[Rfam]
RNA sequence: AGCAAUAGAAUAGGAAACUUAAGGGUGGUCAGCUCAUCCCCAAAUGAAAGGGGGUGGUGCUGUGACGGUAUUCGAAGCAUUAAUGUUUGCAUGUACGUUUGCAAGCUUAGUCAUUGCGAUAUUGUCAUUUAACCAAAGAAAAUAAUCCACCCUUAAGCUUGGAGGCAUAGGUGGAUUAUUCCCAUCUUAAAGCUGUCCCCCUUGAAGGGAACCUUCUAUUGCACUGACCGUUGGUGUUCGAGCACCAGCG
Numbered sequence: 001a002g003c004a005a006u007a008g009a010a011u012a013g014g015a016a017a018c019u020u021a022a023g024g025g026u027g028g029u030c031a032g033c034u035c036a037u038c039c040c041c042a043a044a045u046g047a048a049a050g051g052g053g054g055u056g057g058u059g060c061u062g063u064g065a066c067g068g069u070a071u072u073c074g075a076a077g078c079a080u081u082a083a084u085g086u087u088u089g090c091a092u093g094u095a096c097g098u099u100u101g102c103a104a105g106c107u108u109a110g111u112c113a114u115u116g117c118g119a120u121a122u123u124g125u126c127a128u129u130u131a132a133c134c135a136a137a138g139a140a141a142a143u144a145a146u147c148c149a150c151c152c153u154u155a156a157g158c159u160u161g162g163a164g165g166c167a168u169a170g171g172u173g174g175a176u177u178a179u180u181c182c183c184a185u186c187u188u189a190a191a192g193c194u195g196u197c198c199c200c201c202u203u204g205a206a207g208g209g210a211a212c213c214u215u216c217u218a219u220u221g222c223a224c225u226g227a228c229c230g231u232u233g234g235u236g237u238u239c240g241a242g243c244a245c246c247a248g249c250g
Stems, first nucleotide, its partner, number of pairs: 002222004007217003018157008027147003034057003038053004064126007077090003100118004160184003198209003229250009
RNA: BsrG